[Rfam]
RNA sequence: CCCGCCACCGUGCCUGUCUGGUAGCGCAGUGGCUGGUACAGUCCAGAGGUGAGCUGACAGCAAUGCCAGCCCAGGAAACAGAGUUACCCUCCUUGUGGGUAACUUUGUGCCGAAGGCUGGGAACAGGA
Numbered sequence: 001c002c003c004g005c006c007a008c009c010g011u012g013c014c015u016g017u018c019u020g021g022u023a024g025c026g027c028a029g030u031g032g033c034u035g036g037u038a039c040a041g042u043c044c045a046g047a048g049g050u051g052a053g054c055u056g057a058c059a060g061c062a063a064u065g066c067c068a069g070c071c072c073a074g075g076a077a078a079c080a081g082a083g084u085u086a087c088c089c090u091c092c093u094u095g096u097g098g099g100u101a102a103c104u105u106u107g108u109g110c111c112g113a114a115g116g117c118u119g120g121g122a123a124c125a126g127g128a
Stems, first nucleotide, its partner, number of pairs: 005049002008046001010044001018036004022031002066120006074111002079107006087099003